[Rfam]
RNA sequence: GGUUGGAUGAAUUUUUUAAUUCAUUUUCAAGAUCUGGCUUUUUAGGGUGGAAAGCU
Numbered sequence: 001g002g003u004u005g006g007a008u009g010a011a012u013u014u015u016u017u018a019a020u021u022c023a024u025u026u027u028c029a030a031g032a033u034c035u036g037g038c039u040u041u042u043u044a045g046g047g048u049g050g051a052a053a054g055c056u
Base pairs, nucleotide, nucleotide: 003030004029005028006025007024008023009022010021011020036056037055038054039053040052041051042050